RNA sequence: UCACCACCGGACGGAACCGGUCCCGAGGGUUGGGGAGCCUGAUGACGGACCGGGUCUCCGAGGCCGGCACCGGGUCUUAGGGAGCCCGGGGCCACCGCUCCGGUGAAGGAG
Numbered sequence: 001u002c003a004c005c006a007c008c009g010g011a012c013g014g015a016a017c018c019g020g021u022c023c024c025g026a027g028g029g030u031u032g033g034g035g036a037g038c039c040u041g042a043u044g045a046c047g048g049a050c051c052g053g054g055u056c057u058c059c060g061a062g063g064c065c066g067g068c069a070c071c072g073g074g075u076c077u078u079a080g081g082g083a084g085c086c087c088g089g090g091g092c093c094a095c096c097g098c099u100c101c102g103g104u105g106a107a108g109g110a111g
Base pairs, nucleotide, nucleotide: 005105006104007103008102009101010100011099012060013059014058015057017054018052019051020050021049022048023047027040028039029038030037031036062096063095066093067092068091071088072087073086074085075084